RNA sequence: AUUUUAUGAUGAUCACCAUGCGUGUCAACUGAUUCCAGACUUUUCUGCAUUGCUUGGUGGCUGGUGAGCGUUCUGCUAAUCAGUGUACCUAGCGUGUAGGGUUCUGGUUGCAUGAUCAAUUUAGAAGUCUGAAAAU
Numbered sequence: 001a002u003u004u005u006a007u008g009a010u011g012a013u014c015a016c017c018a019u020g021c022g023u024g025u026c027a028a029c030u031g032a033u034u035c036c037a038g039a040c041u042u043u044u045c046u047g048c049a050u051u052g053c054u055u056g057g058u059g060g061c062u063g064g065u066g067a068g069c070g071u072u073c074u075g076c077u078a079a080u081c082a083g084u085g086u087a088c089c090u091a092g093c094g095u096g097u098a099g100g101g102u103u104c105u106g107g108u109u110g111c112a113u114g115a116u117c118a119a120u121u122u123a124g125a126a127g128u129c130u131g132a133a134a135a136u
Stems, first nucleotide, its partner, number of pairs: 001136004043099002046096003050092002
Overview:
Shown here is a 136-nucleotide RNA from Electrophorus electricus, a member of the family "Small nucleolar RNA SNORD10". A search with the family's covariance model found it, with a score of 69 bits. Lineage of the source: Eukaryota > Opisthokonta > Eumetazoa > Gymnotoidei > Electrophorus. The family's RNA type in Rfam is C/D-box small nucleolar RNA.